[Rfam]
Nucleotides: 073
Base pairs, nucleotide, nucleotide: 001072002071003070004069005068006067007066010025011024012023013022027043028042029041030040031039049065050064051063052062053061
Number, partner (000 for none) and nucleotide at each position: 001072g002071c003070a004069u005068c006067u007066u008000u009000a010025g011024c012023u013022c014000a015000g016000u017000u018000g019000g020000c021000a022013g023012a024011g025010c026000a027043a028042c029041u030040g031039a032000c033000u034000c035000u036000u037000a038000a039031u040030c041029a042028g043027u044000g045000g046000g047000u048000c049065c050064g051063g052062g053061g054000u055000u056000c057000g058000a059000a060000u061053c062052c063051c064050c065049g066007a067006a068005g069004a070003u071002g072001u073000a
Shown here is a 73-nucleotide sequence from Cloacimonas acidaminivorans, a member of the family "tRNA". Its family is annotated with triplet codon-amino acid adaptor activity in the Gene Ontology. NCBI's taxonomy places the organism under Bacteria, Candidatus Cloacimonadota, Cloacimonadales (SeqCode), Cloacimonadaceae (SeqCode), Cloacimonas acidaminivorans (SeqCode). Rfam classes the family as a transfer RNA.